[Rfam]
The family of this 114-nucleotide RNA from Clostridium aminobutyricum is "FMN riboswitch aptamer (RFN element)". Pairs were carried over by alignment from the consensus structure, which is taken from published work. NCBI's taxonomy places the organism under Bacteria, Clostridia, Eubacteriales, Clostridiaceae, Clostridium. It scores 116 bits against the family's covariance model.
RNA sequence: AAAGAUCUUCAGGGCAGGGUGUGAUUCCCUACCGGUGGUAUAGCCCACGAGCCGCAAGGUUGAUUCGGUGAGAUUCCGAGGCCGACAGUAUAGUCUGGAUGGAAGAAGAUAACA
Numbered sequence: 001a002a003a004g005a006u007c008u009u010c011a012g013g014g015c016a017g018g019g020u021g022u023g024a025u026u027c028c029c030u031a032c033c034g035g036u037g038g039u040a041u042a043g044c045c046c047a048c049g050a051g052c053c054g055c056a057a058g059g060u061u062g063a064u065u066c067g068g069u070g071a072g073a074u075u076c077c078g079a080g081g082c083c084g085a086c087a088g089u090a091u092a093g094u095c096u097g098g099a100u101g102g103a104a105g106a107a108g109a110u111a112a113c114a
Stems, first nucleotide, its partner, number of pairs: 005110006017029003031094002033084002035048004043082002051060003064080005086097003